[Rfam]
RNA: Archaeal large subunit ribosomal RNA, nucleotides 10 to 537
RNA sequence: CUACUGUGCCAUCUGGUGAAUAGCUCGGCUCGAGAGCCGAUGACGGACGUGUCAAGCAGCGAUAUGCUCCGGGGAGCCGCAAGAAGGCGAAGAACCGGAGAUUUCCGAAUGGGAAUCCCCACAGCAAUUGCCUUGCGCAAUGGGGAACGCUCCGAAUUGAAACAUCUCAGUAGGAGCAGGAACAGAACGCAACAGCGAUGUCGUCAGUAACGGCGAGUAAACGCGACACAGUCCAAACCGAAGCCUUCGGGCAAUGUGGUGUACGGGCUGGUCACAACCGGGAGCGGCGACGCGAGAAGUCUUCUGGAACGAAGCGCGAGACAGGGUGACAGCCCCGUAUCGCGUCAAAACUCCCGCGGACCGGUACCAGAGUAGCAGGGGUUGGAUAUCCUCUGUGAAGGACCCAGGCAUCGACUGGGAAGACUAAACACUCCUCGAGACCGAUAGCGAACAAGUAGCGUGAGCGAACGCUGAAAAGCACCCCGAGAAGGGCGGUGCAAAGGGCUUGAAAUCAGAUGGCGAUAGAGC
Numbered sequence: 001c002u003a004c005u006g007u008g009c010c011a012u013c014u015g016g017u018g019a020a021u022a023g024c025u026c027g028g029c030u031c032g033a034g035a036g037c038c039g040a041u042g043a044c045g046g047a048c049g050u051g052u053c054a055a056g057c058a059g060c061g062a063u064a065u066g067c068u069c070c071g072g073g074g075a076g077c078c079g080c081a082a083g084a085a086g087g088c089g090a091a092g093a094a095c096c097g098g099a100g101a102u103u104u105c106c107g108a109a110u111g112g113g114a115a116u117c118c119c120c121a122c123a124g125c126a127a128u129u130g131c132c133u134u135g136c137g138c139a140a141u142g143g144g145g146a147a148c149g150c151u152c153c154g155a156a157u158u159g160a161a162a163c164a165u166c167u168c169a170g171u172a173g174g175a176g177c178a179g180g181a182a183c184a185g186a187a188c189g190c191a192a193c194a195g196c197g198a199u200g201u202c203g204u205c206a207g208u209a210a211c212g213g214c215g216a217g218u219a220a221a222c223g224c225g226a227c228a229c230a231g232u233c234c235a236a237a238c239c240g241a242a243g244c245c246u247u248c249g250g251g252c253a254a255u256g257u258g259g260u261g262u263a264c265g266g267g268c269u270g271g272u273c274a275c276a277a278c279c280g281g282g283a284g285c286g287g288c289g290a291c292g293c294g295a296g297a298a299g300u301c302u303u304c305u306g307g308a309a310c311g312a313a314g315c316g317c318g319a320g321a322c323a324g325g326g327u328g329a330c331a332g333c334c335c336c337g338u339a340u341c342g343c344g345u346c347a348a349a350a351c352u353c354c355c356g357c358g359g360a361c362c363g364g365u366a367c368c369a370g371a372g373u374a375g376c377a378g379g380g381g382u383u384g385g386a387u388a389u390c391c392u393c394u395g396u397g398a399a400g401g402a403c404c405c406a407g408g409c410a411u412c413g414a415c416u417g418g419g420a421a422g423a424c425u426a427a428a429c430a431c432u433c434c435u436c437g438a439g440a441c442c443g444a445u446a447g448c449g450a451a452c453a454a455g456u457a458g459c460g461u462g463a464g465c466g467a468a469c470g471c472u473g474a475a476a477a478g479c480a481c482c483c484c485g486a487g488a489a490g491g492g493c494g495g496u497g498c499a500a501a502g503g504g505c506u507u508g509a510a511a512u513c514a515g516a517u518g519g520c521g522a523u524a525g526a527g528c
Base pairs, nucleotide, nucleotide: 007521008520009519010518011517012516013515014514015513016512022506023471024470027442028441029439030438031437032436033435034434035432036431044107045106046105047104048061049060050059067100068099069098070097071096072095076088077087078086111120112119113118127141128140129139130138131137148179149177150176151175152174153173159166160165189196190195200227201226202225203224204223210218211217230425231424232423233422238259239258240257269363270362271361272360279356280355281354282353293342294341295340299315301314302313303312304311318322324336325335326334375396376395377394378393379392380391381390403419404418405417406416407415458465459464